[Rfam]
Shown here is a 138-nucleotide RNA from Methyloceanibacter stevinii, a member of the family "Alphaproteobacterial sRNA BjrC1505".
On this family, see Madhugiri et al., RNA Biol 2012: "Small RNAs of the Bradyrhizobium/Rhodopseudomonas lineage and their analysis".
A search with the family's covariance model found it, with a score of 81 bits.
Pairs were carried over by alignment from the consensus structure.
RNA sequence: CCUUAGUCUUAACCGGUUGUUAGGGACUCACCCGUAAAGUCAUCGUUAUCCAGUCCUCUGGAUCUGAGUGGCCUGUUCCACUCUGUUUGACGCCUCCCUGUUAACUUCCUGAGCCGCCGUUUCGGCGGCUCCUUUUUU
Number, nucleotide and partner (000 for none) at each position: 001c045002c000003u000004u042005a000006g014007u000008c000009u000010u000011a000012a000013c000014c006015g000016g000017u037018u000019g000020u000021u036022a035023g000024g033025g032026a000027c000028u000029c000030a000031c000032c025033c024034g000035u022036a021037a017038a000039g000040u000041c000042a004043u000044c000045g001046u000047u000048a000049u062050c061051c060052a059053g000054u000055c000056c000057u000058c000059u052060g051061g050062a049063u000064c000065u000066g083067a082068g081069u080070g079071g078072c000073c000074u000075g000076u000077u000078c071079c070080a069081c068082u067083c066084u000085g000086u000087u000088u000089g102090a101091c100092g099093c000094c000095u000096c000097c000098c000099u092100g091101u090102u089103a000104a000105c000106u000107u000108c000109c000110u000111g131112a130113g129114c128115c127116g126117c125118c124119g123120u000121u000122u000123c119124g118125g117126c116127g115128g114129c113130u112131c111132c000133u000134u000135u000136u000137u000138u000